The family of this 201-nucleotide RNA is "IS605-orfB-I RNA". The sequence is in the family's curated seed alignment. The base pairs follow the family's consensus structure, which is taken from published work. By type it is a small RNA.
[Rfam]
RNA sequence: UCCGGAUAAACUUGUAUCCAUCCAAGUGAAUGGGGCAAGUCACUUUACGGAAUUAAAUUAAGUAACACAUUUUAGGAUUGCCAAAGUCUUACAUAUAAGUGAAAUCCUUGAAUGAUUAGGAUAACCGUAUGUCCUUUAGCAUUAAUUGUGCUAUAAAAAUAAUCUUGAAUAACUUUAAUUAAGUUUUCAAGUUACGGCCGG
Numbered sequence: 001u002c003c004g005g006a007u008a009a010a011c012u013u014g015u016a017u018c019c020a021u022c023c024a025a026g027u028g029a030a031u032g033g034g035g036c037a038a039g040u041c042a043c044u045u046u047a048c049g050g051a052a053u054u055a056a057a058u059u060a061a062g063u064a065a066c067a068c069a070u071u072u073u074a075g076g077a078u079u080g081c082c083a084a085a086g087u088c089u090u091a092c093a094u095a096u097a098a099g100u101g102a103a104a105u106c107c108u109u110g111a112a113u114g115a116u117u118a119g120g121a122u123a124a125c126c127g128u129a130u131g132u133c134c135u136u137u138a139g140c141a142u143u144a145a146u147u148g149u150g151c152u153a154u155a156a157a158a159a160u161a162a163u164c165u166u167g168a169a170u171a172a173c174u175u176u177a178a179u180u181a182a183g184u185u186u187u188c189a190a191g192u193u194a195c196g197g198c199c200g201g
Base pairs, nucleotide, nucleotide: 001051002050003049004048006046008044010040011039012038013037014036015035017034018033019032020031021030022028068114069113070112071111074108075107076106077105078104079103088099090097118135119134120133121132122131125197126196127195128194129193130159137153138152139151140150141149164191165190166189167188168187169186171184